Source information
Small nucleolar RNA Z122: a 92-nucleotide RNA from Asparagus officinalis. NCBI's taxonomy places the organism under Eukaryota, Embryophyta, Tracheophyta, Spermatophyta, Asparagus. On this family, see Chen et al., Nucleic Acids Res 2003: "The high diversity of snoRNAs in plants: identification and comparative study of 120 snoRNA genes from Oryza sativa". The base pairs follow the family's consensus structure, which was predicted with PFOLD. Its family is annotated with nucleolus and RNA processing in the Gene Ontology.

RNA sequence: CUUGGGAAAUGAUGAUAGAUUAUUUGCAACAUAGGCUGUUGCUAUUACGCGGCAGCUUUUGCUGAAACUUUGCACGUCAGUCUGAUCCCAAA
Numbered sequence: 001c002u003u004g005g006g007a008a009a010u011g012a013u014g015a016u017a018g019a020u021u022a023u024u025u026g027c028a029a030c031a032u033a034g035g036c037u038g039u040u041g042c043u044a045u046u047a048c049g050c051g052g053c054a055g056c057u058u059u060u061g062c063u064g065a066a067a068c069u070u071u072g073c074a075c076g077u078c079a080g081u082c083u084g085a086u087c088c089c090a091a092a
Stems, first nucleotide, its partner, number of pairs: 002091006
Rfam classes the family as a C/D-box small nucleolar RNA.